[Rfam]
RNA: Vibrio RNA AS9
Organism: Geotalea uraniireducens
RNA sequence: AAGGUCGCACUUGUCACCGGUCAAGGUGAGGCAGACAAGACCUCGACCGUAUUUGGCCAUAAAGUUGAUCGCCUCGGGAGUGACCUUUUCCGCCGCCAUGGUCA
Numbered sequence: 001a002a003g004g005u006c007g008c009a010c011u012u013g014u015c016a017c018c019g020g021u022c023a024a025g026g027u028g029a030g031g032c033a034g035a036c037a038a039g040a041c042c043u044c045g046a047c048c049g050u051a052u053u054u055g056g057c058c059a060u061a062a063a064g065u066u067g068a069u070c071g072c073c074u075c076g077g078g079a080g081u082g083a084c085c086u087u088u089u090c091c092g093c094c095g096c097c098a099u100g101g102u103c104a
Stems, first nucleotide, its partner, number of pairs: 003058005008028005035050002039047001041045001066104005071096002075092003078088003